[Rfam]
RNA sequence: UGUUCGGUCCACUCUAAGUAUGAACGCCAAGCAUAUUUGUUACAGUUUGGUGUUCUACCUUACAGUGAAUUGAGCC
Numbered sequence: 001u002g003u004u005c006g007g008u009c010c011a012c013u014c015u016a017a018g019u020a021u022g023a024a025c026g027c028c029a030a031g032c033a034u035a036u037u038u039g040u041u042a043c044a045g046u047u048u049g050g051u052g053u054u055c056u057a058c059c060u061u062a063c064a065g066u067g068a069a070u071u072g073a074g075c076c
Stems, first nucleotide, its partner, number of pairs: 006071003010067004015062003025052008
RNA: mir-971 microRNA precursor family